[Rfam]
RNA sequence: CCAAAGGCUCUUUUCAGAGCCACCCACAGUCUCGAGAAGGAGCGGG
Numbered sequence: 001c002c003a004a005a006g007g008c009u010c011u012u013u014u015c016a017g018a019g020c021c022a023c024c025c026a027c028a029g030u031c032u033c034g035a036g037a038a039g040g041a042g043c044g045g046g
Stems, first nucleotide, its partner, number of pairs: 006021006
RNA: Histone 3' UTR stem-loop
Organism: Podargus strigoides